[Rfam]
RNA sequence: AUACUUACCUGUAUCACUGAAGAGAUAUCAUGAUCAAGAAGAUGGUUUUCCCAGGGCGAGGCUUAUUCAUUGCACUCUGGUUGUGCUGAUCCCUGCGAUUUUCCCAAAUGGGGGAAAGUCAACUGCAUAAUUUGUGGUAAUGGGGGGCUGUGUUCUUGCUUUCCCCUA
Numbered sequence: 001a002u003a004c005u006u007a008c009c010u011g012u013a014u015c016a017c018u019g020a021a022g023a024g025a026u027a028u029c030a031u032g033a034u035c036a037a038g039a040a041g042a043u044g045g046u047u048u049u050c051c052c053a054g055g056g057c058g059a060g061g062c063u064u065a066u067u068c069a070u071u072g073c074a075c076u077c078u079g080g081u082u083g084u085g086c087u088g089a090u091c092c093c094u095g096c097g098a099u100u101u102u103c104c105c106a107a108a109u110g111g112g113g114g115a116a117a118g119u120c121a122a123c124u125g126c127a128u129a130a131u132u133u134g135u136g137g138u139a140a141u142g143g144g145g146g147g148c149u150g151u152g153u154u155c156u157u158g159c160u161u162u163c164c165c166c167u168a
Base pairs, nucleotide, nucleotide: 017125019123022050023049024048025047027046028045029044030043031042053094054093055092056091058090060087061086062085064083065082067080068079097120098119099117100115101114103113104112142167143166144165145164146163147162150159151158152157
RNA: U1 spliceosomal RNA